Shown here is a 258-nucleotide RNA sequence from Sorghum bicolor, a member of the family "Early nodulin 40".
Rfam classes the family as a non-coding RNA gene.
A search with the family's covariance model found it, with a score of 66 bits.
The organism belongs to Sorghum, within Eukaryota.
[Rfam]
RNA sequence: AUGGAGGAAGCAUGGUGGCAGGAAUGUCUGCAUGGUUCUUGAGAGUUGCAUAAGCAGCAAAGCAGUUCAUGGAUGGUUGGAUGACAAUGGCCAGUUGAGCACUUGAGCUGCUGGUCCUCAUCAAUCAUCAGUUUGUAUUUGUCCAUGCCUCUUGUGGCCGUCUUCCCUGGCUGGCUUCCAGUUCCGGAAGGCCCGGUGAGGCGUGGACAGAGACCGGCAAGUCAGAGAUCGGCAAUGGUGAGCUCCUGCAGGAGCCUA
Numbered sequence: 001a002u003g004g005a006g007g008a009a010g011c012a013u014g015g016u017g018g019c020a021g022g023a024a025u026g027u028c029u030g031c032a033u034g035g036u037u038c039u040u041g042a043g044a045g046u047u048g049c050a051u052a053a054g055c056a057g058c059a060a061a062g063c064a065g066u067u068c069a070u071g072g073a074u075g076g077u078u079g080g081a082u083g084a085c086a087a088u089g090g091c092c093a094g095u096u097g098a099g100c101a102c103u104u105g106a107g108c109u110g111c112u113g114g115u116c117c118u119c120a121u122c123a124a125u126c127a128u129c130a131g132u133u134u135g136u137a138u139u140u141g142u143c144c145a146u147g148c149c150u151c152u153u154g155u156g157g158c159c160g161u162c163u164u165c166c167c168u169g170g171c172u173g174g175c176u177u178c179c180a181g182u183u184c185c186g187g188a189a190g191g192c193c194c195g196g197u198g199a200g201g202c203g204u205g206g207a208c209a210g211a212g213a214c215c216g217g218c219a220a221g222u223c224a225g226a227g228a229u230c231g232g233c234a235a236u237g238g239u240g241a242g243c244u245c246c247u248g249c250a251g252g253a254g255c256c257u258a
Base pairs, nucleotide, nucleotide: 067120069118131214132213133212134209135208136207150201151200152199153198154197155196242255243254244253245252